[Rfam]
RNA sequence: UGCAGACAUUUUGAGUUGGGUAGACGCCCACACCAACCUGCUCACGGAGCAAGGUGGUUUGCUUUUAAAGCAAUGUGGCUCGCAAGAGCAACCAAGCCGAAGCGU
Numbered sequence: 001u002g003c004a005g006a007c008a009u010u011u012u013g014a015g016u017u018g019g020g021u022a023g024a025c026g027c028c029c030a031c032a033c034c035a036a037c038c039u040g041c042u043c044a045c046g047g048a049g050c051a052a053g054g055u056g057g058u059u060u061g062c063u064u065u066u067a068a069a070g071c072a073a074u075g076u077g078g079c080u081c082g083c084a085a086g087a088g089c090a091a092c093c094a095a096g097c098c099g100a101a102g103c104g105u
Stems, first nucleotide, its partner, number of pairs: 006076005015031001017030005032058003037054003040050003047098001078089004
Shown here is a 105-nucleotide sequence from Polaromonas sp., a member of the family "SAM-I/IV (S-adenosyl methionine) riboswitch aptamer". On this family, see Weinberg et al., RNA 2008: "The aptamer core of SAM-IV riboswitches mimics the ligand-binding site of SAM-I riboswitches". The base pairs follow the family's consensus structure, which is taken from published work. It scores 61 bits against the family's covariance model. Rfam links the family to the GO terms regulation of gene expression and S-adenosylmethionine metabolic process. The family is grouped with related families in Rfam's "SAM clan".